Rfam assigns this 172-nucleotide RNA sequence from Eubacterium sp. CAG:38 to the family "Lysine riboswitch aptamer". The family's consensus secondary structure is taken from published work. A search with the family's covariance model found it, with a score of 108 bits. Rfam describes the family as follows. Riboswitches are metabolite binding domains within certain messenger RNAs that serve as precision sensors for their corresponding targets.

RNA sequence: CAGUGAAGUAGAGGUCGCGUUAUUCAUCAGUACGUUGGUAAGAUGUGCCAGACACAGGUGAAACCAAAAGAAAGGGGAUGACGCCGAAGUGGAAGAUUACUGGAGGUCUUCUGCUGGGCGUAAGAUUAAGAGUCUUGCGACUGUCAUCUUUAGAUGGAGGGCUACUUAAAGA
Numbered sequence: 001c002a003g004u005g006a007a008g009u010a011g012a013g014g015u016c017g018c019g020u021u022a023u024u025c026a027u028c029a030g031u032a033c034g035u036u037g038g039u040a041a042g043a044u045g046u047g048c049c050a051g052a053c054a055c056a057g058g059u060g061a062a063a064c065c066a067a068a069a070g071a072a073a074g075g076g077g078a079u080g081a082c083g084c085c086g087a088a089g090u091g092g093a094a095g096a097u098u099a100c101u102g103g104a105g106g107u108c109u110u111c112u113g114c115u116g117g118g119c120g121u122a123a124g125a126u127u128a129a130g131a132g133u134c135u136u137g138c139g140a141c142u143g144u145c146a147u148c149u150u151u152a153g154a155u156g157g158a159g160g161g162c163u164a165c166u167u168a169a170a171g172a
Base pairs, nucleotide, nucleotide: 006167007166008165009164010163011162017084018083019082020081021080022079023078024077025076035067036066037065038064039063088115089114090113091112092111093110094109095108096107097106098105116142117141119139120138121137122136123135124134125133126132144157145156146155147154148153